[Rfam]
RNA sequence: CUCCCAUCCUCUCUGAAAUCAAUAAAAGUAUAUUUUAAAAAAUUUGAGCUUACUAUAGCAACCAAGUCUAACCGAUUCCGGUGCUCUCUUCUCUAUGAGACAAACGGAUUUAUAGACUUAGGCAGU
Numbered sequence: 001c002u003c004c005c006a007u008c009c010u011c012u013c014u015g016a017a018a019u020c021a022a023u024a025a026a027a028g029u030a031u032a033u034u035u036u037a038a039a040a041a042a043u044u045u046g047a048g049c050u051u052a053c054u055a056u057a058g059c060a061a062c063c064a065a066g067u068c069u070a071a072c073c074g075a076u077u078c079c080g081g082u083g084c085u086c087u088c089u090u091c092u093c094u095a096u097g098a099g100a101c102a103a104a105c106g107g108a109u110u111u112a113u114a115g116a117c118u119u120a121g122g123c124a125g126u
Stems, first nucleotide, its partner, number of pairs: 009048003012041001014039001016036003021031001064119007075111001079107001081105002087100004

This 126-nucleotide sequence from Myotis davidii belongs to the Rfam family "Small nucleolar RNA SNORA28". Rfam 15.1 lists 922 matches to the family in 535 species. On this family, see Huttenhofer et al., EMBO J 2001: "RNomics: an experimental approach that identifies 201 candidates for novel, small, non-messenger RNAs in mouse". A search with the family's covariance model found it, with a score of 72 bits. Rfam's curators write: ACA28 is a member of the H/ACA class of snoRNA that guide the sites of modification of uridines to pseudouridines. Pairs were carried over by alignment from the consensus structure, which was predicted with RNAfold. By type it is an H/ACA-box small nucleolar RNA.